Overview: A member of the RNA family "Potassium channel RNA editing signal", 114 nucleotides long. On this family, see Bhalla et al., Nat Struct Mol Biol 2004: "Control of human potassium channel inactivation by editing of a small mRNA hairpin".
RNA sequence: GUUGGUUAUGGGGAUAUGGCACCCAAGACUUAUGUGGGUAUGUUUGUUGGUGCCCUGUGUGCCCUUGCUGGUGUGUUGACAAUUGCGCUACCAGUACCAGUCAUUGUGUCCAAC
Numbered sequence: 001g002u003u004g005g006u007u008a009u010g011g012g013g014a015u016a017u018g019g020c021a022c023c024c025a026a027g028a029c030u031u032a033u034g035u036g037g038g039u040a041u042g043u044u045u046g047u048u049g050g051u052g053c054c055c056u057g058u059g060u061g062c063c064c065u066u067g068c069u070g071g072u073g074u075g076u077u078g079a080c081a082a083u084u085g086c087g088c089u090a091c092c093a094g095u096a097c098c099a100g101u102c103a104u105u106g107u108g109u110c111c112a113a114c
Stems, first nucleotide, its partner, number of pairs: 001114002004111002007108005013102003018097001021095002037077004049063003